[Rfam]
RNA sequence: UCGUGAAGGCUAAAUGGAGAAGAGAGAGAGUACAGCUUUGGGCGGUUUAGUUGUUAGAUGGUGGAAGUACUUGCGACGCCUACUACCCUUUUCACCAAGGCUGUACGCUCCCUCUUCUUCUCUUAGCUUUUUAUG
Dot-bracket structure: ....((..(..((..(((((((((.(((.((((((((((((.....................................................)))))))))))).))).)))))))))..))..)..))....
RNA: MIR529 microRNA precursor family
Organism: Oryza sativa